[Rfam]
RNA sequence: CAAUCCGUGAGGAACGGUCUGAAGGGAGCCGCUAGCAAACCUGUGAGCUGAUGAACAAGAACAUCAUAUGAGGCGUAGGCAGAAGGCGAGUCAGCACAAGAUGACGAAGCCAGGUGAUCUGAUGGCCACCGUAAAUGAUGCAGUUGUGCAGGGAAAGUUCAUGUU
Numbered sequence: 001c002a003a004u005c006c007g008u009g010a011g012g013a014a015c016g017g018u019c020u021g022a023a024g025g026g027a028g029c030c031g032c033u034a035g036c037a038a039a040c041c042u043g044u045g046a047g048c049u050g051a052u053g054a055a056c057a058a059g060a061a062c063a064u065c066a067u068a069u070g071a072g073g074c075g076u077a078g079g080c081a082g083a084a085g086g087c088g089a090g091u092c093a094g095c096a097c098a099a100g101a102u103g104a105c106g107a108a109g110c111c112a113g114g115u116g117a118u119c120u121g122a123u124g125g126c127c128a129c130c131g132u133a134a135a136u137g138a139u140g141c142a143g144u145u146g147u148g149c150a151g152g153g154a155a156a157g158u159u160c161a162u163g164u165u
Stems, first nucleotide, its partner, number of pairs: 001016001004013003028165001030163002035158002040152006046145005062140006073132003078127003083123001085111003090105004
RNA: Group II catalytic intron D1-D4-3